[Rfam]
RNA sequence: AGUAAAUCCUUUCAAUAAAAGGUACACUUUUUAUGGAAAUAAAACAAUACUAAAACUAAGUGAAUGAGCAAUACCGACCCUCUAAUUCUAUCAAGAGGGUCGGUAUUGCUCCUUC
Numbered sequence: 001a002g003u004a005a006a007u008c009c010u011u012u013c014a015a016u017a018a019a020a021g022g023u024a025c026a027c028u029u030u031u032u033a034u035g036g037a038a039a040u041a042a043a044a045c046a047a048u049a050c051u052a053a054a055a056c057u058a059a060g061u062g063a064a065u066g067a068g069c070a071a072u073a074c075c076g077a078c079c080c081u082c083u084a085a086u087u088c089u090a091u092c093a094a095g096a097g098g099g100u101c102g103g104u105a106u107u108g109c110u111c112c113u114u115c
Stems, first nucleotide, its partner, number of pairs: 008022003012019001062115003066111009076101003080097004
Plastid-psbA-1 3UTR RNA: a 115-nucleotide RNA sequence from Papaver somniferum. Lineage of the source: Eukaryota > Streptophytina > Papaveraceae > Papaveroideae > Papaver. From the family's description: Plastid psbA-1 is a non-coding RNA (ncRNA) present in plastids. It was identified in inverted repeat sequences in the 3 prime untranslate region (3UTR) of photosystem II quinone-binding protein (psbA). For this family Rfam cites "Retrograde signaling in plants: A critical review focusing on the GUN pathway and beyond" (Richter et al., Plant Commun, 2023). The match comes from Rfam's covariance-model search (54 bits).